[Rfam]
RNA: Cyanobacterial ribosomal protein S1 leader
RNA sequence: AUCUGUAGAGUCACACAUUCUCCGUUCAACGUCGGCGGGCGUUGGACGUGAAUCCUUCGUACUACCCACCUGAGGUAGACCGCCAA
Numbered sequence: 001a002u003c004u005g006u007a008g009a010g011u012c013a014c015a016c017a018u019u020c021u022c023c024g025u026u027c028a029a030c031g032u033c034g035g036c037g038g039g040c041g042u043u044g045g046a047c048g049u050g051a052a053u054c055c056u057u058c059g060u061a062c063u064a065c066c067c068a069c070c071u072g073a074g075g076u077a078g079a080c081c082g083c084c085a086a
Stems, first nucleotide, its partner, number of pairs: 023048004028043005034084005062078005